[Rfam]
RNA sequence: AGUUGCAAGUUCAAGGCCAUAGCAGAAGCACUCAUGGUGCAGCCCAGUCAGAUUCCAAUGAAUCUGCAAAUUCUGCU
Numbered sequence: 001a002g003u004u005g006c007a008a009g010u011u012c013a014a015g016g017c018c019a020u021a022g023c024a025g026a027a028g029c030a031c032u033c034a035u036g037g038u039g040c041a042g043c044c045c046a047g048u049c050a051g052a053u054u055c056c057a058a059u060g061a062a063u064c065u066g067c068a069a070a071u072u073c074u075g076c077u
Base pairs, nucleotide, nucleotide: 015044016043017042021077022076023075024074025073026072027071028040029039030038049066050065051064052063053062054061055060
The record is a 77-nucleotide RNA from Alligator sinensis, which matches "Mammalian CPEB3 ribozyme" in Rfam. The family's consensus secondary structure is taken from published work. Its family is annotated with RNA nuclease activity in the Gene Ontology. A search with the family's covariance model found it, with a score of 56 bits.